This 180-nucleotide RNA from Streptacidiphilus fuscans belongs to the Rfam family "M-box riboswitch aptamer (ykoK leader)". A search with the family's covariance model found it, with a score of 135 bits.

[Rfam]
RNA sequence: GCGACACCUCGUUCGGUGAGGCGUCUGCACGGACACAGGCCACUGACCCGACGACGUCGAGAGACGCCCAGGGUCAGGACACCUCCUCCCGGCUUAAGGGUCGAGGCCAAGUGGCUUCCCGCUCGCUCUUCGGGCGGGACACGCCGUGCAGUGCCGAAGCUCUUACGUGAGAGGUGUCGG
Numbered sequence: 001g002c003g004a005c006a007c008c009u010c011g012u013u014c015g016g017u018g019a020g021g022c023g024u025c026u027g028c029a030c031g032g033a034c035a036c037a038g039g040c041c042a043c044u045g046a047c048c049c050g051a052c053g054a055c056g057u058c059g060a061g062a063g064a065c066g067c068c069c070a071g072g073g074u075c076a077g078g079a080c081a082c083c084u085c086c087u088c089c090c091g092g093c094u095u096a097a098g099g100g101u102c103g104a105g106g107c108c109a110a111g112u113g114g115c116u117u118c119c120c121g122c123u124c125g126c127u128c129u130u131c132g133g134g135c136g137g138g139a140c141a142c143g144c145c146g147u148g149c150a151g152u153g154c155c156g157a158a159g160c161u162c163u164u165a166c167g168u169g170a171g172a173g174g175u176g177u178c179g180g
Stems, first nucleotide, its partner, number of pairs: 005176006011166002013097001015161003020155003025151008039115005045075005055066004082106004088100003117139009

Rfam 15.1 lists 1,095 matches to the family in 932 species. From the family's description: M-box riboswitch, also know as ykoK leader is described as a metaloregulatory RNA that sense divalent metals and function as a genetic control element of genes related to divalent metal transport in bacteria. It was first reported upstream of the B.subtilis ykoK gene and genes with related functions in other bacteria.